[Rfam]
RNA sequence: CCGCGCCUUCAUUGGGGAGUAGCCGCCCUUCACCGUGGUGAAGGGGCUUGCGUCAACACACUUGGCCGUCCGGCCAUGGCGCAAGCAGUUCCUGGACUUGGCAAGACCUUUGAUCACGAUGCCUCUGGUAUGGCCGGGGAGGCGCGUGGUCAUCGGUUGUACCGGCCAGGG
Numbered sequence: 001c002c003g004c005g006c007c008u009u010c011a012u013u014g015g016g017g018a019g020u021a022g023c024c025g026c027c028c029u030u031c032a033c034c035g036u037g038g039u040g041a042a043g044g045g046g047c048u049u050g051c052g053u054c055a056a057c058a059c060a061c062u063u064g065g066c067c068g069u070c071c072g073g074c075c076a077u078g079g080c081g082c083a084a085g086c087a088g089u090u091c092c093u094g095g096a097c098u099u100g101g102c103a104a105g106a107c108c109u110u111u112g113a114u115c116a117c118g119a120u121g122c123c124u125c126u127g128g129u130a131u132g133g134c135c136g137g138g139g140a141g142g143c144g145c146g147u148g149g150u151c152a153u154c155g156g157u158u159g160u161a162c163c164g165g166c167c168a169g170g171g
Stems, first nucleotide, its partner, number of pairs: 027044003046086010063076005093171001